[Rfam]
RNA: Cyano-1 RNA
Organism: Gloeothece verrucosa
RNA sequence: GUGUGUGUGAGGAGCAAGAACGAGCAGUACAAAAACCUUGGGGUCGAAACACGGCAAGACUCCCAGGGUUUUUGUGAU
Numbered sequence: 001g002u003g004u005g006u007g008u009g010a011g012g013a014g015c016a017a018g019a020a021c022g023a024g025c026a027g028u029a030c031a032a033a034a035a036c037c038u039u040g041g042g043g044u045c046g047a048a049a050c051a052c053g054g055c056a057a058g059a060c061u062c063c064c065a066g067g068g069u070u071u072u073u074g075u076g077a078u
Stems, first nucleotide, its partner, number of pairs: 015074001031073005038066005043060003